The record is a 95-nucleotide sequence from Oharaeibacter diazotrophicus, which matches "Glycine riboswitch aptamer" in Rfam. It scores 59 bits against the family's covariance model. Rfam links the family to the GO term glycine biosynthetic process.

[Rfam]
RNA sequence: GGACGCCGCGCGGGAGAGACCGGCCUCGUCGAGGGGCCGGCGCCGAAGGAGCAACCGCCCCGGAAACUCUCAGGCCAAAGGACCGCUCGCGGCGA
Dot-bracket structure: ......((.((((......(((((((.......))))))).(((((..(((...((.....))...))))).))).......)))).))......